[Rfam]
Nucleotides: 248
Stems, first nucleotide, its partner, number of pairs: 013195005019189003030170004036164001038162001045142008071107002074104011108132010146157002149154001174184002202242002206238011
Number, partner (000 for none) and nucleotide at each position: 001000a002000g003000c004000c005000u006000u007000g008000c009000a010000c011000c012000a013195g014194a015193a016192c017191c018000a019189c020188u021187a022000c023000c024000a025000a026000a027000a028000a029000c030170g031169u032168u033167u034000a035000g036164a037000a038162g039000a040000a041000c042000u043000u044000u045142g046141g047140a048139g049138a050137g051136u052135u053000c054000c055000u056000u057000c058000u059000u060000a061000a062000u063000u064000u065000u066000u067000u068000g069000a070000c071107a072106g073000u074104c075103c076102c077101u078100c079099c080098u081097a082096g083095a084094u085000a086000c087000u088000u089000u090000c091000a092000c093000a094084g095083u096082c097081u098080a099079g100078g101077g102076g103075g104074g105000u106072c107071u108132u109131u110130a111129a112128g113127g114126u115125u116124g117123u118000c119000a120000c121000u122000u123117g124116c125115a126114a127113c128112c129111u130110u131109g132108a133000u134000a135052a136051g137050c138049u139048c140047u141046c142045u143000u144000u145000u146157u147156a148000a149154c150000c151000a152000u153000u154149g155000c156147u157146a158000u159000u160000c161000g162038c163000c164036u165000a166000g167033a168032a169031a170030c171000a172000g173000c174184a175183c176000u177000g178000g179000a180000a181000c182000u183175g184174u185000u186000u187021u188020a189019g190000c191017g192016g193015u194014u195013c196000a197000a198000c199000u200000c201000c202242u203241c204000u205000u206238g207237u208236a209235g210234g211233a212232u213231c214230u215229u216228c217000u218000u219000c220000c221000c222000u223000u224000u225000u226000u227000u228216g229215a230214a231213g232212g233211u234210u235209u236208u237207a238206u239000c240000u241203g242202a243000a244000a245000u246000u247000u248000g
Description:
This 248-nucleotide RNA from Streptococcus pyogenes belongs to the Rfam family "rivX sRNA". On this family, see Roberts and Scott, Mol Microbiol 2007: "RivR and the small RNA RivX: the missing links between the CovR regulatory cascade and the Mga regulon". The family's consensus secondary structure was predicted with WAR. The sequence is in the family's curated seed alignment.